Shown here is a 131-nucleotide RNA from Hevea brasiliensis, a member of the family "mir-166 microRNA precursor family".
From the family's description: This family represents the plant microRNA (miRNA) precursor mir-166.
The family's consensus secondary structure was predicted with PFOLD.
[Rfam]
RNA sequence: UUUGAGGGGAAUGUUGUCUGGCUCGAGGCCACUAACUAGAUCGAUGAUUUUAUCUCUGAAUUGAUUUAUUUUUGUUGAGAUAUGAUUGAUCUUGAGUUAGUGACGUCGGACCAGGCUUCAUUCCCCCCAAU
Numbered sequence: 001u002u003u004g005a006g007g008g009g010a011a012u013g014u015u016g017u018c019u020g021g022c023u024c025g026a027g028g029c030c031a032c033u034a035a036c037u038a039g040a041u042c043g044a045u046g047a048u049u050u051u052a053u054c055u056c057u058g059a060a061u062u063g064a065u066u067u068a069u070u071u072u073u074g075u076u077g078a079g080a081u082a083u084g085a086u087u088g089a090u091c092u093u094g095a096g097u098u099a100g101u102g103a104c105g106u107c108g109g110a111c112c113a114g115g116c117u118u119c120a121u122u123c124c125c126c127c128c129a130a131u
Stems, first nucleotide, its partner, number of pairs: 002130003006126008016116006024108003